[Rfam]
RNA sequence: AAGGGCUGUGGCUGCCUGUAGCCAUGGGAUCUCCAACUGCAUGCCAGAGUAAUGGAGAGACUUUGACAGCUCAGGUCAGCACAGUGCCUGCAGCUGCCACUCAUCUUUCCUAUAUA
Numbered sequence: 001a002a003g004g005g006c007u008g009u010g011g012c013u014g015c016c017u018g019u020a021g022c023c024a025u026g027g028g029a030u031c032u033c034c035a036a037c038u039g040c041a042u043g044c045c046a047g048a049g050u051a052a053u054g055g056a057g058a059g060a061c062u063u064u065g066a067c068a069g070c071u072c073a074g075g076u077c078a079g080c081a082c083a084g085u086g087c088c089u090g091c092a093g094c095u096g097c098c099a100c101u102c103a104u105c106u107u108u109c110c111u112a113u114a115u116a
Base pairs, nucleotide, nucleotide: 004023005022006021007020008019009018010017054110055109056108057107058106059105069097070096072090073089074088075087
Dot-bracket structure: ...(((((((......)))))))..............................((((((.........((.((((...........)))).....)).......))))))......

Shown here is a 116-nucleotide RNA sequence, a member of the family "Small nucleolar RNA SNORA44". Clan: SNORA44 clan. Rfam's curators put it in the seed alignment. By type it is an H/ACA-box small nucleolar RNA. ACA44 is a member of the H/ACA class of snoRNA that guide the sites of modification of uridines to pseudouridines. A reference for the family is Huttenhofer et al. (2001), "RNomics: an experimental approach that identifies 201 candidates for novel, small, non-messenger RNAs in mouse", EMBO J.